RNA sequence: GGACGGUGACGAUGUCAUCAGUGAAAGGUCUCGUUCGUCGUAAAUUGGCUGUUUCCGAUAGCCUUUGCCGACCAUCCUGAUAAAUCAACACCCAUAUUCCGAGUCC
Numbered sequence: 001g002g003a004c005g006g007u008g009a010c011g012a013u014g015u016c017a018u019c020a021g022u023g024a025a026a027g028g029u030c031u032c033g034u035u036c037g038u039c040g041u042a043a044a045u046u047g048g049c050u051g052u053u054u055c056c057g058a059u060a061g062c063c064u065u066u067g068c069c070g071a072c073c074a075u076c077c078u079g080a081u082a083a084a085u086c087a088a089c090a091c092c093c094a095u096a097u098u099c100c101g102a103g104u105c106c
Stems, first nucleotide, its partner, number of pairs: 001106004051065001052060001